[Rfam]
This 299-nucleotide RNA from Funneliformis geosporum belongs to the Rfam family "Nuclear RNase P".
RNA sequence: CGAACGAAAAGCUCGUGUAAGGGGAAAACAUACGGACAACGGAUUUAUUCCGAUGUCACUUUAACCCUUGGGAAGGUCUGAGAAAAACUAUAAAAGUCUCUAGCUGGGAUACUCGUGAGAAUGAGUGCGAAUAACCAGAAACGGUACACUCCUUGGUUUGUUAAUAUGAAGUCUUUAUGAUGGAUUGUUUUCCUAUCAAUGGAGUGUUGGAACGCGAUUCGCUAGUGGAAGUUCUAUGAAGUGCGAUACACGAGACAUCACAAUGUGAUGUAACUCAAUUCAGACUACUCUUUCGUUCG
Numbered sequence: 001c002g003a004a005c006g007a008a009a010a011g012c013u014c015g016u017g018u019a020a021g022g023g024g025a026a027a028a029c030a031u032a033c034g035g036a037c038a039a040c041g042g043a044u045u046u047a048u049u050c051c052g053a054u055g056u057c058a059c060u061u062u063a064a065c066c067c068u069u070g071g072g073a074a075g076g077u078c079u080g081a082g083a084a085a086a087a088c089u090a091u092a093a094a095a096g097u098c099u100c101u102a103g104c105u106g107g108g109a110u111a112c113u114c115g116u117g118a119g120a121a122u123g124a125g126u127g128c129g130a131a132u133a134a135c136c137a138g139a140a141a142c143g144g145u146a147c148a149c150u151c152c153u154u155g156g157u158u159u160g161u162u163a164a165u166a167u168g169a170a171g172u173c174u175u176u177a178u179g180a181u182g183g184a185u186u187g188u189u190u191u192c193c194u195a196u197c198a199a200u201g202g203a204g205u206g207u208u209g210g211a212a213c214g215c216g217a218u219u220c221g222c223u224a225g226u227g228g229a230a231g232u233u234c235u236a237u238g239a240a241g242u243g244c245g246a247u248a249c250a251c252g253a254g255a256c257a258u259c260a261c262a263a264u265g266u267g268a269u270g271u272a273a274c275u276c277a278a279u280u281c282a283g284a285c286u287a288c289u290c291u292u293u294c295g296u297u298c299g
Stems, first nucleotide, its partner, number of pairs: 001299004007293003012254007020069005035057004040052004078283005087226004096110005111126006127222006147206006255271007

From the family's description: Ribonuclease P (RNase P) is a ubiquitous endoribonuclease, found in archaea, bacteria and eukarya as well as chloroplasts and mitochondria.
Taxonomically the source falls in Funneliformis (Eukaryota, Glomeromycota, Glomeromycotina, Glomeromycetes).